[Rfam]
RNA sequence: AUUAGUCUUCAGGGCAGGGUGAAAUUCCCGACCGGUGGUAAAGUCCACGAGCCUGGUACCUUAGGGUCUAGGUUGAACUGGUGAAAUUCCAGUACCGACAGUAAAGUCUGGAUGGGAGAAGUAAGCU
Numbered sequence: 001a002u003u004a005g006u007c008u009u010c011a012g013g014g015c016a017g018g019g020u021g022a023a024a025u026u027c028c029c030g031a032c033c034g035g036u037g038g039u040a041a042a043g044u045c046c047a048c049g050a051g052c053c054u055g056g057u058a059c060c061u062u063a064g065g066g067u068c069u070a071g072g073u074u075g076a077a078c079u080g081g082u083g084a085a086a087u088u089c090c091a092g093u094a095c096c097g098a099c100a101g102u103a104a105a106g107u108c109u110g111g112a113u114g115g116g117a118g119a120a121g122u123a124a125g126c127u
Base pairs, nucleotide, nucleotide: 003125007121008120009119010118017029018028019027031107032106033097034096035048036047037046038045043095044094051073052072053071077093078092079091080090081089099110100109101108
Rfam assigns this 127-nucleotide sequence from Abiotrophia defectiva to the family "FMN riboswitch aptamer (RFN element)". Pairs were carried over by alignment from the consensus structure, which is taken from published work. The organism belongs to Abiotrophia defectiva, within Bacteria. It scores 115 bits against the family's covariance model.